[Rfam]
RNA sequence: GUAACUCUUUUAGAGUUACUUCUCAUCCUCACCAUUCAUUUUUUUAAGAUCUAAUGGUUAAAAUUAGUUACUUAUUACAACCAUUAGAUUUUAAGAAAAUGAAUGAUGAGGAUGGGGAGUAACUCUAAAAAAGUUAC
Numbered sequence: 001g002u003a004a005c006u007c008u009u010u011u012a013g014a015g016u017u018a019c020u021u022c023u024c025a026u027c028c029u030c031a032c033c034a035u036u037c038a039u040u041u042u043u044u045u046a047a048g049a050u051c052u053a054a055u056g057g058u059u060a061a062a063a064u065u066a067g068u069u070a071c072u073u074a075u076u077a078c079a080a081c082c083a084u085u086a087g088a089u090u091u092u093a094a095g096a097a098a099a100u101g102a103a104u105g106a107u108g109a110g111g112a113u114g115g116g117g118a119g120u121a122a123c124u125c126u127a128a129a130a131a132a133g134u135u136a137c
Stems, first nucleotide, its partner, number of pairs: 001137006008130024033105027062076003
Rfam assigns this 137-nucleotide sequence from Glycine max to the family "MIR5380 microRNA precursor family". Its family is annotated with miRNA-mediated post-transcriptional gene silencing and RISC complex in the Gene Ontology. Taxonomically the source falls in Glycine subgen. Soja (Eukaryota, Euphyllophyta, Spermatophyta, Magnoliopsida). It is one of the family's seed sequences.